[Rfam]
RNA sequence: ACGCUCCCGCAGGACGAGGCCUCCUCCCGCCCGGUCUGGCGCACUUCCCCGGUGCCAGAACGGACGCGGUGGGAGACCUGGCCCGGCGGCGCGGAACGG
Dot-bracket structure: .........(.((.(..((.(((((.(((((((.((((((((.........)))))))).)))..)))).))))).))..).)).).............
Numbered sequence: 001a002c003g004c005u006c007c008c009g010c011a012g013g014a015c016g017a018g019g020c021c022u023c024c025u026c027c028c029g030c031c032c033g034g035u036c037u038g039g040c041g042c043a044c045u046u047c048c049c050c051g052g053u054g055c056c057a058g059a060a061c062g063g064a065c066g067c068g069g070u071g072g073g074a075g076a077c078c079u080g081g082c083c084c085g086g087c088g089g090c091g092c093g094g095a096a097c098g099g
Stems, first nucleotide, its partner, number of pairs: 010086001012084002015081001018078002021075005027069004031063003035059008
The family of this 99-nucleotide RNA from Oerskovia sp. Root918 is "mraW RNA". The source organism's lineage runs through Bacteria, Actinomycetota, Actinomycetes, Cellulomonadaceae and Oerskovia. The family's consensus secondary structure is taken from published work. Rfam classes the family as a cis-regulatory element.